[Rfam]
RNA sequence: AGUAACUGAGGUCGGAACAGGUAGCCGACACCACGCAUAAGCGGUAGGAGAUGCAGAUUACCACCUGCCCUUUACU
Numbered sequence: 001a002g003u004a005a006c007u008g009a010g011g012u013c014g015g016a017a018c019a020g021g022u023a024g025c026c027g028a029c030a031c032c033a034c035g036c037a038u039a040a041g042c043g044g045u046a047g048g049a050g051a052u053g054c055a056g057a058u059u060a061c062c063a064c065c066u067g068c069c070c071u072u073u074a075c076u
Base pairs, nucleotide, nucleotide: 001076002075003074004073005072008069011029012028013027014026015025020062021061022060023059031048034043035042036041053068054067055066056065
Dot-bracket structure: (((((..(..(((((....[[[[.))))).(..(((....)))....)....((((..]]]]..)))))..)))))
Shown here is a 76-nucleotide RNA from Clostridiales bacterium NK3B98, a member of the family "skipping-rope RNA". Rfam classes the family as a small RNA. It is one of the family's seed sequences.